[Rfam]
RNA: Burkholderia sRNA Bp1_Cand871_SIPHT
Organism: Paraburkholderia megapolitana
RNA sequence: UCGCCCACAAUGCCUUUCAACGGUUCCAACACGGAUGUGGCCAGGUGCGUAGUGUGAGCGGACAUGAAGCACUUGCCGGUCGGCGUAUGCCGAAGCCCUGCGAAGGGGCAUCCCUGCUGGAUUCGUGGUCGACGUUAUUGCGUCGUUCCCCGGUUCCUCCAUUGGUCUCCUCGCGCUAACCCCGUAGCGUGUGGUUUUUAGCGGGCUCCAGGCCCGCUUUUUUUU
Numbered sequence: 001u002c003g004c005c006c007a008c009a010a011u012g013c014c015u016u017u018c019a020a021c022g023g024u025u026c027c028a029a030c031a032c033g034g035a036u037g038u039g040g041c042c043a044g045g046u047g048c049g050u051a052g053u054g055u056g057a058g059c060g061g062a063c064a065u066g067a068a069g070c071a072c073u074u075g076c077c078g079g080u081c082g083g084c085g086u087a088u089g090c091c092g093a094a095g096c097c098c099u100g101c102g103a104a105g106g107g108g109c110a111u112c113c114c115u116g117c118u119g120g121a122u123u124c125g126u127g128g129u130c131g132a133c134g135u136u137a138u139u140g141c142g143u144c145g146u147u148c149c150c151c152g153g154u155u156c157c158u159c160c161a162u163u164g165g166u167c168u169c170c171u172c173g174c175g176c177u178a179a180c181c182c183c184g185u186a187g188c189g190u191g192u193g194g195u196u197u198u199u200a201g202c203g204g205g206c207u208c209c210a211g212g213c214c215c216g217c218u219u220u221u222u223u224u225u
Stems, first nucleotide, its partner, number of pairs: 005165003020126004025121004030116002033113006039077003045072004050067001052065004080093005096107004130145004169194002172191007200218008